[Rfam]
RNA sequence: CUUGAUGGAACCCAGUCGCAGCGGCUGGUCCGCGGGCCUGUCCCGGCCGUAGGUUGCGAGCAGGGCCUGCGCCUC
Numbered sequence: 001c002u003u004g005a006u007g008g009a010a011c012c013c014a015g016u017c018g019c020a021g022c023g024g025c026u027g028g029u030c031c032g033c034g035g036g037c038c039u040g041u042c043c044c045g046g047c048c049g050u051a052g053g054u055u056g057c058g059a060g061c062a063g064g065g066c067c068u069g070c071g072c073c074u075c
Stems, first nucleotide, its partner, number of pairs: 014026004031071003038065002043060001047056001049054001
This 75-nucleotide RNA sequence from Streptomyces sp. BR123 belongs to the Rfam family "ASpks TB sRNA". The family has 77 seed sequences and 9,052 matches in Rfam 15.1. The organism belongs to Streptomyces, within Bacteria. By type it is an antisense RNA.